RNA sequence: CUACUUUAAUCGCUGAGUUCUAUAUUAAGAUAGAAGCGGGGGACCCACUUUUUUGGGGCGAGUGAAAACAUAGUACUGCUAUAUUUUCUAAGGUUACCUUUAACCUGAGUCCGACAGCUAACCUCGUAAGCGUUGAAAAGGGGUAGG
Numbered sequence: 001c002u003a004c005u006u007u008a009a010u011c012g013c014u015g016a017g018u019u020c021u022a023u024a025u026u027a028a029g030a031u032a033g034a035a036g037c038g039g040g041g042g043a044c045c046c047a048c049u050u051u052u053u054u055g056g057g058g059c060g061a062g063u064g065a066a067a068a069c070a071u072a073g074u075a076c077u078g079c080u081a082u083a084u085u086u087u088c089u090a091a092g093g094u095u096a097c098c099u100u101u102a103a104c105c106u107g108a109g110u111c112c113g114a115c116a117g118c119u120a121a122c123c124u125c126g127u128a129a130g131c132g133u134u135g136a137a138a139a140g141g142g143g144u145a146g147g
Stems, first nucleotide, its partner, number of pairs: 011132004018035006036127006046055002056112003064088004091106004
RNA: c-di-AMP riboswitch aptamer (ydaO/yuaA leader)